[Rfam]
RNA sequence: GCACGACACUAGCAAUCCUAAUGAAAGUUAGGUACGCAAAACCACAGGUCUAAGGAUAAAAUCUAUGGCGGCUGGGUUGCCGAA
Numbered sequence: 001g002c003a004c005g006a007c008a009c010u011a012g013c014a015a016u017c018c019u020a021a022u023g024a025a026a027g028u029u030a031g032g033u034a035c036g037c038a039a040a041a042c043c044a045c046a047g048g049u050c051u052a053a054g055g056a057u058a059a060a061a062u063c064u065a066u067g068g069c070g071g072c073u074g075g076g077u078u079g080c081c082g083a084a
Stems, first nucleotide, its partner, number of pairs: 012037002017032006040078004045074003048069003055063003
A member of the RNA family "c-di-GMP-I riboswitch aptamer" from Aquibacillus koreensis, 84 nucleotides long. NCBI's taxonomy places the organism under Bacteria, Bacillota, Bacilli, Bacillaceae, Aquibacillus.